Nucleotides: 132
Base pairs, nucleotide, nucleotide: 002059003058004057006055007054008053021042022041023040024039025038026037027036070125071124072123073122074121084111086109087108088107089106
Number, partner (000 for none) and nucleotide at each position: 001000u002059g003058c004057c005000u006055c007054g008053u009000u010000c011000u012000u013000c014000c015000a016000c017000a018000a019000c020000g021042a022041g023040a024039c025038a026037c027036a028000a029000c030000c031000u032000g033000c034000u035000a036027u037026g038025u039024g040023u041022c042021u043000g044000a045000a046000u047000u048000u049000g050000a051000g052000a053008a054007c055006g056000u057004g058003g059002c060000u061000a062000g063000a064000a065000g066000a067000g068000u069000a070125a071124c072123a073122g074121g075000u076000u077000c078000u079000g080000c081000u082000u083000u084111c085000c086109u087108c088107g089106c090000u091000g092000u093000a094000c095000a096000c097000u098000c099000a100000g101000u102000u103000g104000c105000a106089g107088u108087g109086g110000u111084g112000a113000c114000a115000a116000u117000g118000a119000g120000a121074c122073c123072u124071g125070u126000a127000a128000c129000a130000a131000g132000u
Shown here is a 132-nucleotide RNA sequence from Cisticola juncidis, a member of the family "Small nucleolar RNA SNORA1". A search with the family's covariance model found it, with a score of 99 bits. Rfam 15.1 lists 1,282 matches to the family in 515 species. It is annotated as an H/ACA-box small nucleolar RNA. Gene Ontology terms of the family: nucleolus and RNA processing. Pairs were carried over by alignment from the consensus structure, which was predicted with PFOLD. From the family's description: ACA1 is a member of the H/ACA class of snoRNA that guide the sites of modification of uridines to pseudouridines.